[Rfam]
RNA sequence: UUGGAAGUUUGAGUGGGGCUGACCUUAGUACGAGAGGACCGGGUUGGACGAAUCUCUGGUGAAUCUGUUAUGGCGCCAGCUGUAUUGCAGAGUAGCUACAUUCGGAAUAGAUAAGCGCUGAAAGCAUCUAAGCGCGAAACUAGCCACAAGAUGAGACUUCCAUUGAGGGUCGUAGCAGACGACUACGUUGAUAGGUUACAGAUAUAAAGGUGGUGACAUCAAAGUCGAGUAAUACUAAUAACCCGAA
Numbered sequence: 001u002u003g004g005a006a007g008u009u010u011g012a013g014u015g016g017g018g019c020u021g022a023c024c025u026u027a028g029u030a031c032g033a034g035a036g037g038a039c040c041g042g043g044u045u046g047g048a049c050g051a052a053u054c055u056c057u058g059g060u061g062a063a064u065c066u067g068u069u070a071u072g073g074c075g076c077c078a079g080c081u082g083u084a085u086u087g088c089a090g091a092g093u094a095g096c097u098a099c100a101u102u103c104g105g106a107a108u109a110g111a112u113a114a115g116c117g118c119u120g121a122a123a124g125c126a127u128c129u130a131a132g133c134g135c136g137a138a139a140c141u142a143g144c145c146a147c148a149a150g151a152u153g154a155g156a157c158u159u160c161c162a163u164u165g166a167g168g169g170u171c172g173u174a175g176c177a178g179a180c181g182a183c184u185a186c187g188u189u190g191a192u193a194g195g196u197u198a199c200a201g202a203u204a205u206a207a208a209g210g211u212g213g214u215g216a217c218a219u220c221a222a223a224g225u226c227g228a229g230u231a232a233u234a235c236u237a238a239u240a241a242c243c244c245g246a247a
Stems, first nucleotide, its partner, number of pairs: 003161008013147004019047007049104005057098003064091005069084006108142003115135005164246001167244004171187005192237003195233005201226002205221001209220004